[Rfam]
RNA sequence: AGUUGAGGUGGUGUUCUUUUUGGCGCAUUUGUUAAGUUUUCAAGUGGGCCUAACUCUGCCACAUACAUGACAUUGGAGCUGGUGAGGCCACAUGGGCUCCCACAUGU
Numbered sequence: 001a002g003u004u005g006a007g008g009u010g011g012u013g014u015u016c017u018u019u020u021u022g023g024c025g026c027a028u029u030u031g032u033u034a035a036g037u038u039u040u041c042a043a044g045u046g047g048g049c050c051u052a053a054c055u056c057u058g059c060c061a062c063a064u065a066c067a068u069g070a071c072a073u074u075g076g077a078g079c080u081g082g083u084g085a086g087g088c089c090a091c092a093u094g095g096g097c098u099c100c101c102a103c104a105u106g107u
Stems, first nucleotide, its partner, number of pairs: 005062001007060005022050003026046006075100006081089003
The family of this 107-nucleotide RNA sequence from Carlito syrichta is "Small nucleolar RNA SNORA12". The match comes from Rfam's covariance-model search (95 bits). Rfam links the family to the GO terms nucleolus and RNA processing. The family's RNA type in Rfam is H/ACA-box small nucleolar RNA. From the family's description: U108 belongs to the H/ACA family of snoRNAs. The sequence is predicted to guide the pseudouridylation of the U372 residue in the 28S rRNA subunit.